Rfam assigns this 159-nucleotide RNA from Tsukamurella paurometabola to the family "FMN riboswitch aptamer (RFN element)". Pairs were carried over by alignment from the consensus structure, which is taken from published work.
[Rfam]
RNA sequence: GGAAGUUCUCAGGGCGGGGUGCGAUUCCCCACCGGCGGUGAUGGACUCCGGGCGAUCCCGGUGUUCGAGCCCGCGAGCGCCCCACCGCGAGGCGGGGGUCAGCAGAUUCCGGUGUGACUCCGGAGCCGACGGUCAUAGUCCGGAUGAAAGAGAACGACG
Numbered sequence: 001g002g003a004a005g006u007u008c009u010c011a012g013g014g015c016g017g018g019g020u021g022c023g024a025u026u027c028c029c030c031a032c033c034g035g036c037g038g039u040g041a042u043g044g045a046c047u048c049c050g051g052g053c054g055a056u057c058c059c060g061g062u063g064u065u066c067g068a069g070c071c072c073g074c075g076a077g078c079g080c081c082c083c084a085c086c087g088c089g090a091g092g093c094g095g096g097g098g099u100c101a102g103c104a105g106a107u108u109c110c111g112g113u114g115u116g117a118c119u120c121c122g123g124a125g126c127c128g129a130c131g132g133u134c135a136u137a138g139u140c141c142g143g144a145u146g147a148a149a150g151a152g153a154a155c156g157a158c159g
Base pairs, nucleotide, nucleotide: 005155006154007153008152009151010150017029018028019027031139032138033128034127035074036073037072038071069126070125077103078102108124109123110122111121112120130142131141132140
Taxonomically the source falls in Tsukamurella paurometabola (Bacteria, Actinomycetes, Tsukamurellaceae, Tsukamurella). Gene Ontology term of the family: FMN binding. About the family: The RFN element is a highly conserved domain that is found frequently in the 5'-untranslated regions of prokaryotic mRNAs that encode for flavin mononucleotide (FMN) biosynthesis and transport proteins. This element is a metabolite-dependent riboswitch that directly binds FMN in the absence of proteins. In Bacillus subtilis, the riboswitch most likely controls gene expression by causing premature transcription termination within the 5' untranslated region of the ribDEAHT operon and precluding access to the ribosome-binding site of ypaA mRNA.The FMN riboswitch structure, reported in present an FMN-bound six-stem junction, adopts a butterfly-like scaffold, stapled together by opposingly directed but nearly identically folded peripheral domains.